Rfam assigns this 146-nucleotide RNA from Zoogloea dura to the family "Guanidine-I riboswitch aptamer". Lineage of the source: Bacteria > Pseudomonadati > Pseudomonadota > Rhodocyclales > Zoogloea. It scores 82 bits against the family's covariance model. The pairing is the family consensus, mapped onto this sequence.
RNA sequence: UCGAAGGGUGGCUAGGGUUCCGAUCCUGUCUAGGAUGUGCAUGCAUGUCCGCAGGAUGUCUGGUCCGAGAGCUGCCGGCCAUGAAGCGCCGGGUUCAGGAUUGCCGGCGUGACGUGGCUCCACGGAGGGAUAAAAGCCCGGGAGGA
Numbered sequence: 001u002c003g004a005a006g007g008g009u010g011g012c013u014a015g016g017g018u019u020c021c022g023a024u025c026c027u028g029u030c031u032a033g034g035a036u037g038u039g040c041a042u043g044c045a046u047g048u049c050c051g052c053a054g055g056a057u058g059u060c061u062g063g064u065c066c067g068a069g070a071g072c073u074g075c076c077g078g079c080c081a082u083g084a085a086g087c088g089c090c091g092g093g094u095u096c097a098g099g100a101u102u103g104c105c106g107g108c109g110u111g112a113c114g115u116g117g118c119u120c121c122a123c124g125g126a127g128g129g130a131u132a133a134a135a136g137c138c139c140g141g142g143a144g145g146a
Stems, first nucleotide, its partner, number of pairs: 007076006015066002020063002022060001023057006077119007121141001123144001127139003